[Rfam]
RNA: Group I catalytic intron
RNA sequence: CGAAGACGAUUAUCUGGUCGUCAAUAGUGAAAGCUAGUUACCUCUUCCAGGUAACAACACCAUCAAAUUGCGGGGACCUCCUAAAGAUCAUGCUACACCCUUUGCUGGAAACGGCCUAGGCUUGUUAAAAUCGUAUGAUAUGAGCUGGUAAUGCCGGCGAAAUGGAUCAUCCGCAGCCAUGUCCUAACAGCGUAUGACCGCUCACGGGCAAGGUCCACAGACUAGACGUUGGUGGAGAGGUCGCCCUAGGCACCCCUUUAAGAUAUAGUCGAUCCUGGCCGAAAGCCCAGU
Numbered sequence: 001c002g003a004a005g006a007c008g009a010u011u012a013u014c015u016g017g018u019c020g021u022c023a024a025u026a027g028u029g030a031a032a033g034c035u036a037g038u039u040a041c042c043u044c045u046u047c048c049a050g051g052u053a054a055c056a057a058c059a060c061c062a063u064c065a066a067a068u069u070g071c072g073g074g075g076a077c078c079u080c081c082u083a084a085a086g087a088u089c090a091u092g093c094u095a096c097a098c099c100c101u102u103u104g105c106u107g108g109a110a111a112c113g114g115c116c117u118a119g120g121c122u123u124g125u126u127a128a129a130a131u132c133g134u135a136u137g138a139u140a141u142g143a144g145c146u147g148g149u150a151a152u153g154c155c156g157g158c159g160a161a162a163u164g165g166a167u168c169a170u171c172c173g174c175a176g177c178c179a180u181g182u183c184c185u186a187a188c189a190g191c192g193u194a195u196g197a198c199c200g201c202u203c204a205c206g207g208g209c210a211a212g213g214u215c216c217a218c219a220g221a222c223u224a225g226a227c228g229u230u231g232g233u234g235g236a237g238a239g240g241u242c243g244c245c246c247u248a249g250g251c252a253c254c255c256c257u258u259u260a261a262g263a264u265a266u267a268g269u270c271g272a273u274c275c276u277g278g279c280c281g282a283a284a285g286c287c288c289a290g291u
Base pairs, nucleotide, nucleotide: 005022006021007020008019009018010017011016026035027034028033058234059233060232061231062230064228069175070174071173072172073171074170079166080165081164176214177213181209182208183207184206189202190201191200192199218271220270221269222268223267224266236257237256276289277288278287280285